RNA sequence: UUGGCAGACCAAACGGUCGCUGGCGAUUUUUUUGGUUGUUGGCAUGAAUGAUUGUAAGCAUGAAUGAUUGUUAACAUGAAAAGUCGCGGGAGGAAAGUCCGAACUACACAGGGCAGAGUGCCAGCUAACGGCUGGGCAGAGUAAUCUGACGACAAGUGCAACAGAGAAUAGACCGCCACGUUGCUUAAUUGCUUUAAAGCAGCAGGGUAAGGGUGAAACGGUAGGGUAAGAGCCUACCGCAUGACUGGUAACAGAUCAUGGCAAGGUAAACUCCACUCGUAGCAAGACCAAAUAGGUGUUCAAUGGGUUGCCCGCUUAAGAACACGGGUAGGUUGCUUGAGCAUACUGGUAACGGUAUGCCUAGAUGAAUGACCGUUCACGACAGAAUUCGGCUUAUCGGUCUGCCAAUUUU
Numbered sequence: 001u002u003g004g005c006a007g008a009c010c011a012a013a014c015g016g017u018c019g020c021u022g023g024c025g026a027u028u029u030u031u032u033u034g035g036u037u038g039u040u041g042g043c044a045u046g047a048a049u050g051a052u053u054g055u056a057a058g059c060a061u062g063a064a065u066g067a068u069u070g071u072u073a074a075c076a077u078g079a080a081a082a083g084u085c086g087c088g089g090g091a092g093g094a095a096a097g098u099c100c101g102a103a104c105u106a107c108a109c110a111g112g113g114c115a116g117a118g119u120g121c122c123a124g125c126u127a128a129c130g131g132c133u134g135g136g137c138a139g140a141g142u143a144a145u146c147u148g149a150c151g152a153c154a155a156g157u158g159c160a161a162c163a164g165a166g167a168a169u170a171g172a173c174c175g176c177c178a179c180g181u182u183g184c185u186u187a188a189u190u191g192c193u194u195u196a197a198a199g200c201a202g203c204a205g206g207g208u209a210a211g212g213g214u215g216a217a218a219c220g221g222u223a224g225g226g227u228a229a230g231a232g233c234c235u236a237c238c239g240c241a242u243g244a245c246u247g248g249u250a251a252c253a254g255a256u257c258a259u260g261g262c263a264a265g266g267u268a269a270a271c272u273c274c275a276c277u278c279g280u281a282g283c284a285a286g287a288c289c290a291a292a293u294a295g296g297u298g299u300u301c302a303a304u305g306g307g308u309u310g311c312c313c314g315c316u317u318a319a320g321a322a323c324a325c326g327g328g329u330a331g332g333u334u335g336c337u338u339g340a341g342c343a344u345a346c347u348g349g350u351a352a353c354g355g356u357a358u359g360c361c362u363a364g365a366u367g368a369a370u371g372a373c374c375g376u377u378c379a380c381g382a383c384a385g386a387a388u389u390c391g392g393c394u395u396a397u398c399g400g401u402c403u404g405c406c407a408a409u410u411u412u
Stems, first nucleotide, its partner, number of pairs: 001408010011397001012377007020090002023087010095395003099392005104282004111313004116278005121135005136150001137148004151273002156271002158267002173212002175208003180203007220238006239262001240260005245254003286334004296325006304318005341360008
Notes:
The family of this 412-nucleotide RNA from Moraxella macacae is "Bacterial RNase P class A". A search with the family's covariance model found it, with a score of 322 bits. Gene Ontology terms of the family: ribonuclease P activity, tRNA processing and dimeric ribonuclease P complex. It is annotated as a ribozyme.